A member of the RNA family "SAH (S-adenosyl-L-homocysteine) riboswitch aptamer" from Polaromonas naphthalenivorans, 75 nucleotides long. Lineage of the source: Bacteria > Burkholderiales > Comamonadaceae > Polaromonas > Polaromonas naphthalenivorans. Its family is annotated with regulation of gene expression and S-adenosylhomocysteine metabolic process in the Gene Ontology. The base pairs follow the family's consensus structure, which is taken from published work.
[Rfam]
RNA sequence: UCUCCUGAGGAGCGUUGCAACCCACGGCAUGUGGUCUAGGCUCAGGACUUCUAUUUGCAACCACGCUCACCCGCA
Numbered sequence: 001u002c003u004c005c006u007g008a009g010g011a012g013c014g015u016u017g018c019a020a021c022c023c024a025c026g027g028c029a030u031g032u033g034g035u036c037u038a039g040g041c042u043c044a045g046g047a048c049u050u051c052u053a054u055u056u057g058c059a060a061c062c063a064c065g066c067u068c069a070c071c072c073g074c075a
Stems, first nucleotide, its partner, number of pairs: 003047006022034005